The record is a 72-nucleotide RNA sequence from Bemisia tabaci, which matches "tRNA" in Rfam.
RNA sequence: GCCUCUUUAGCUUAGUGGUAGAGCGCUGGUCUUGUAAACCAGAGGUCGUGAGUUCAAUCCUCACAGGGGGCA
Numbered sequence: 001g002c003c004u005c006u007u008u009a010g011c012u013u014a015g016u017g018g019u020a021g022a023g024c025g026c027u028g029g030u031c032u033u034g035u036a037a038a039c040c041a042g043a044g045g046u047c048g049u050g051a052g053u054u055c056a057a058u059c060c061u062c063a064c065a066g067g068g069g070g071c072a
Base pairs, nucleotide, nucleotide: 001071002070003069004068005067006066007065010024011023012022013021026042027041028040029039030038048064049063050062051061052060
Record summary: NCBI's taxonomy places the organism under Eukaryota, Bilateria, Neoptera, Aleyrodinae, Bemisia. The family's RNA type in Rfam is transfer RNA. The base pairs follow the family's consensus structure, which is taken from published work.